The family of this 105-nucleotide RNA from Prunus armeniaca is "MIR6274 microRNA precursor family".
Pairs were carried over by alignment from the consensus structure, which was predicted with RNAalifold.
NCBI's taxonomy places the organism under Eukaryota, Streptophyta, Gunneridae, fabids, Prunus.
A search with the family's covariance model found it, with a score of 80 bits.

RNA sequence: UCAUGUAACGUUUUGCUAUUUUUGGCCAAUAACACAAUGACAUGUGAGAUAACUUUUUCACAUGUCAUUGUGUUAUUGGUUGGGGAUAGCAAAAUAAUGCUAUCC
Numbered sequence: 001u002c003a004u005g006u007a008a009c010g011u012u013u014u015g016c017u018a019u020u021u022u023u024g025g026c027c028a029a030u031a032a033c034a035c036a037a038u039g040a041c042a043u044g045u046g047a048g049a050u051a052a053c054u055u056u057u058u059c060a061c062a063u064g065u066c067a068u069u070g071u072g073u074u075a076u077u078g079g080u081u082g083g084g085g086a087u088a089g090c091a092a093a094a095u096a097a098u099g100c101u102a103u104c105c
Base pairs, nucleotide, nucleotide: 003103004102011094012093013092014091015090016089017088018087019086021084022083023082024081025080026079027078028077029076030075031074032073033072034071035070036069037068038067039066040065041064042063043062044061045060046059047058048057049056